[Rfam]
About this RNA
This 149-nucleotide RNA from Carlito syrichta belongs to the Rfam family "U12 minor spliceosomal RNA". Its family is annotated with pre-mRNA branch point binding, mRNA branch site recognition and U12 snRNP in the Gene Ontology. Clan: U2 clan. It scores 137 bits against the family's covariance model. The base pairs follow the family's consensus structure. By type it is a spliceosomal small nuclear RNA.
RNA sequence: AUGCCUUAAAUUUAUGAGUAAGGAAAAUAAUGAUGUGGGGUGACGCCAAAUCCUCACUACUAAUGUGAGAUGAAUUUUUGAGCAGGUAAAGGUUGCCCCUAAGGUGACCCGCUUACUUUGCGGGAUGCCUAGGAGUCGUGAUCUGCCUG
Numbered sequence: 001a002u003g004c005c006u007u008a009a010a011u012u013u014a015u016g017a018g019u020a021a022g023g024a025a026a027a028u029a030a031u032g033a034u035g036u037g038g039g040g041u042g043a044c045g046c047c048a049a050a051u052c053c054u055c056a057c058u059a060c061u062a063a064u065g066u067g068a069g070a071u072g073a074a075u076u077u078u079u080g081a082g083c084a085g086g087u088a089a090a091g092g093u094u095g096c097c098c099c100u101a102a103g104g105u106g107a108c109c110c111g112c113u114u115a116c117u118u119u120g121c122g123g124g125a126u127g128c129c130u131a132g133g134a135g136u137c138g139u140g141a142u143c144u145g146c147c148u149g
Base pairs, nucleotide, nucleotide: 004023005022006021007020008019032052033051034050036049038047039046053069054068055067056066057065083149084148085147086146087145090144091143092142093141094140095139096138099133100132102130103129104128105127106126108124109123110122111121112120